[Rfam]
RNA sequence: AGUCACAAAUUUGAGGCCACAGCAGAAGAGCUCAUGGUGUGACCUGUCAGAUUCCAACAAAUCUGCAAAUUCUACU
Numbered sequence: 001a002g003u004c005a006c007a008a009a010u011u012u013g014a015g016g017c018c019a020c021a022g023c024a025g026a027a028g029a030g031c032u033c034a035u036g037g038u039g040u041g042a043c044c045u046g047u048c049a050g051a052u053u054c055c056a057a058c059a060a061a062u063c064u065g066c067a068a069a070u071u072c073u074a075c076u
Stems, first nucleotide, its partner, number of pairs: 015044002018041001021076002024073004028040001030038001048065006
RNA: Mammalian CPEB3 ribozyme